[Rfam]
RNA sequence: CUGCUGGGGAUAGCGAUCUCCCCACGAGGCGACAUGCCCAAGCAUCGCGUCCGCUUUUCGGAGAAGGACGCCGCAUG
Numbered sequence: 001c002u003g004c005u006g007g008g009g010a011u012a013g014c015g016a017u018c019u020c021c022c023c024a025c026g027a028g029g030c031g032a033c034a035u036g037c038c039c040a041a042g043c044a045u046c047g048c049g050u051c052c053g054c055u056u057u058u059c060g061g062a063g064a065a066g067g068a069c070g071c072c073g074c075a076u077g
Stems, first nucleotide, its partner, number of pairs: 005024006047071006
Dot-bracket structure: ....((((((........))))))......................((((((.............))))))......

chrB-a RNA: a 77-nucleotide RNA sequence from Bradyrhizobium sp. STM 3843. Pairs were carried over by alignment from the consensus structure, which is taken from published work. The match comes from Rfam's covariance-model search (76 bits). Rfam classes the family as a cis-regulatory element.